[Rfam]
RNA sequence: GAUGGUUUUGCAACAGUAAUCUAGCUUAGUACGAGAGGAACCGCUAGUUCAGGUACUUGGUGAUGCAGCUAGUUGAACAACUAGUGCUGCAAAGCUACCACCUGCUCAGGAAAGACUGAACGCCUCUAAGUCCGAACUGAUGCUGAACGCAAAGCUCUUCAUUGCUUCCAUAAUAUCUGCCAAAAGAUAUAAUUUAGUGCCAAAUUUUCACUUUCGAGUGACGUUUAAUAUCCUACUUGUGGAAGUGGUACAUCUUAUGCAGACUACAUAACUGGGUGCGGGUAUUGUAAGCAUGAGAGCAGACUUUGUUCUGCGAUCUGCUGAGAUUCAUCCCGUCAUCGAUCGAUGUGU
Number, nucleotide and partner (000 for none) at each position: 001g000002a000003u000004g156005g155006u154007u153008u152009u151010g150011c149012a000013a000014c145015a144016g143017u142018a000019a049020u000021c047022u046023a045024g044025c043026u000027u000028a000029g000030u000031a000032c000033g000034a000035g000036a000037g000038g000039a000040a000041c000042c000043g025044c024045u023046a022047g021048u000049u019050c104051a103052g102053g101054u100055a000056c000057u000058u097059g096060g095061u000062g000063a000064u091065g090066c089067a088068g087069c084070u083071a082072g081073u080074u079075g000076a000077a000078c000079a074080a073081c072082u071083a070084g069085u000086g000087c068088u067089g066090c065091a064092a000093a000094g000095c060096u059097a058098c000099c000100a054101c053102c052103u051104g050105c000106u140107c139108a138109g000110g000111a000112a000113a000114g132115a131116c130117u129118g000119a000120a000121c000122g000123c000124c000125u000126c000127u000128a000129a117130g116131u115132c114133c000134g000135a000136a000137c000138u108139g107140a106141u000142g017143c016144u015145g014146a000147a000148c000149g011150c010151a009152a008153a007154g006155c005156u004157c000158u000159u000160c000161a000162u000163u000164g246165c245166u244167u243168c242169c241170a240171u000172a000173a000174u000175a000176u000177c000178u000179g000180c000181c000182a000183a000184a000185a000186g000187a000188u000189a000190u000191a000192a000193u000194u000195u000196a000197g000198u000199g000200c000201c000202a000203a000204a000205u000206u000207u000208u000209c000210a000211c000212u000213u000214u000215c000216g000217a000218g000219u000220g000221a000222c000223g000224u000225u000226u000227a000228a000229u000230a000231u000232c000233c000234u000235a000236c000237u000238u000239g000240u170241g169242g168243a167244a166245g165246u164247g000248g000249u000250a349251c348252a347253u346254c345255u271256u270257a269258u268259g267260c000261a000262g000263a000264c000265u000266a000267c259268a258269u257270a256271a255272c000273u000274g000275g340276g339277u338278g337279c000280g334281g333282g332283u000284a327285u326286u000287g000288u000289a000290a000291g321292c320293a319294u000295g000296a317297g000298a000299g314300c313301a312302g311303a310304c000305u000306u000307u000308g000309u000310u303311c302312u301313g300314c299315g000316a000317u296318c000319u293320g292321c291322u000323g000324a000325g000326a285327u284328u000329c000330a000331u000332c282333c281334c280335g000336u000337c278338a277339u276340c275341g000342a000343u000344c000345g254346a253347u252348g251349u250350g000351u000
The family of this 351-nucleotide part of an RNA from Ascogregarina taiwanensis is "Eukaryotic large subunit ribosomal RNA". The family's consensus secondary structure is taken from published work. Rfam's curators put it in the seed alignment.